[Rfam]
Nucleotides: 088
Base pairs, nucleotide, nucleotide: 006083008081009080010079011078012077013076020033021032022031023030035068036067037066038064039063042062043061044060048056049055
Number, partner (000 for none) and nucleotide at each position: 001000u002000c003000a004000c005000c006083c007000c008081c009080g010079u011078u012077g013076g014000g015000a016000g017000a018000a019000a020033c021032c022031g023030c024000u025000u026000c027000g028000a029000u030023g031022c032021g033020g034000u035068g036067c037066c038064g039063a040000a041000g042062g043061a044060g045000c046000a047000a048056c049055c050000g051000c052000c053000c054000c055049g056048g057000a058000a059000a060044c061043u062042c063039u064038c065000a066037g067036g068035c069000a070000a071000a072000a073000g074000g075000a076013c077012c078011a079010g080009c081008g082000a083006g084000g085000c086000c087000g088000a
The family of this 88-nucleotide sequence from Rhizobium album is "Glycine riboswitch aptamer". The match comes from Rfam's covariance-model search (65 bits).